RNA sequence: CGAUCUGCACAUUGUAUGUCGCUCUGGAUAAGAGUGUCUGCUAAAUGACUUGUA
Numbered sequence: 001c002g003a004u005c006u007g008c009a010c011a012u013u014g015u016a017u018g019u020c021g022c023u024c025u026g027g028a029u030a031a032g033a034g035u036g037u038c039u040g041c042u043a044a045a046u047g048a049c050u051u052g053u054a
Stems, first nucleotide, its partner, number of pairs: 013043001014041003020036006
Dot-bracket structure: ............((((...((((((.....))))))..))).)...........

A member of the RNA family "UnaL2 LINE 3' element" from Conger conger, 54 nucleotides long. The eel long interspersed element (LINE) UnaL2 and its partner short interspersed element (SINE) share a conserved 3' tail containing a stem-loop that is critical for their retrotransposition. Presumably, the first step of retrotransposition is the recognition of their 3' tails by UnaL2-encoded reverse transcriptase. The solution structure of a 17-nucleotide RNA derived from the 3' tail of UnaL2 was determined by NMR. A search with the family's covariance model found it, with a score of 57 bits. Taxonomically the source falls in Conger (Eukaryota, Bilateria, Teleostomi, Teleostei).